Shown here is a 112-nucleotide RNA from Cannabis sativa, a member of the family "mir-166 microRNA precursor family". From the family's description: This family represents the plant microRNA (miRNA) precursor mir-166. The source organism's lineage runs through Eukaryota, Viridiplantae, Streptophyta, Tracheophyta and Cannabis. A reference for the family is Reinhart et al. (2002), "MicroRNAs in plants", Genes Dev. Gene Ontology terms of the family: miRNA-mediated post-transcriptional gene silencing and RISC complex. The match comes from Rfam's covariance-model search (87 bits).
RNA sequence: GGUGAGAGGAAUGUUGUCUGGCUCGAGGUCAUGGAGUUUCAUGAAUUUCUACAUCAUAUAAUAUUUGAUGAGAACCUAAAUGAUUCUCGGACCAGGCUUCAUUCCCCUCAAC
Numbered sequence: 001g002g003u004g005a006g007a008g009g010a011a012u013g014u015u016g017u018c019u020g021g022c023u024c025g026a027g028g029u030c031a032u033g034g035a036g037u038u039u040c041a042u043g044a045a046u047u048u049c050u051a052c053a054u055c056a057u058a059u060a061a062u063a064u065u066u067g068a069u070g071a072g073a074a075c076c077u078a079a080a081u082g083a084u085u086c087u088c089g090g091a092c093c094a095g096g097c098u099u100c101a102u103u104c105c106c107c108u109c110a111a112c
Stems, first nucleotide, its partner, number of pairs: 001112001003110004008105006016097006024089003